[Rfam]
RNA: SAM riboswitch aptamer (S box leader)
RNA sequence: GCCUUAUCAAGAGUGAUGGAGGGAAUGGGCCCGAUGAAAUCCGGCAACCUGGGUAUUAUACCAAAGGUGCUAAAUCCCACAGAACUUAGAUUCUGAAAGAUGAGGU
Numbered sequence: 001g002c003c004u005u006a007u008c009a010a011g012a013g014u015g016a017u018g019g020a021g022g023g024a025a026u027g028g029g030c031c032c033g034a035u036g037a038a039a040u041c042c043g044g045c046a047a048c049c050u051g052g053g054u055a056u057u058a059u060a061c062c063a064a065a066g067g068u069g070c071u072a073a074a075u076c077c078c079a080c081a082g083a084a085c086u087u088a089g090a091u092u093c094u095g096a097a098a099g100a101u102g103a104g105g106u
Base pairs, nucleotide, nucleotide: 001106002105003104004103005102006101007100008099013042015041016040017039021032022031023030026079027078028077029076043071044070045069046068048067049066050063051062052061075098080095081094082093083092084091